RNA sequence: GUUUACAGAGAGUUUUGUUGGUUUGCUCUCAGCUUCGUCAUAUUUCUGCUGUGCAAAUCCAUGCAAAGCUCCCUGUUACU
Numbered sequence: 001g002u003u004u005a006c007a008g009a010g011a012g013u014u015u016u017g018u019u020g021g022u023u024u025g026c027u028c029u030c031a032g033c034u035u036c037g038u039c040a041u042a043u044u045u046c047u048g049c050u051g052u053g054c055a056a057a058u059c060c061a062u063g064c065a066a067a068g069c070u071c072c073c074u075g076u077u078a079c080u
Stems, first nucleotide, its partner, number of pairs: 003078001005076004010071009020060002022057005028051001031050003

mir-19 microRNA precursor family: an 80-nucleotide RNA from Myripristis murdjan. On this family, see Lagos-Quintana et al., Science 2001: "Identification of novel genes coding for small expressed RNAs". The family is grouped with related families in Rfam's "mir-19 clan".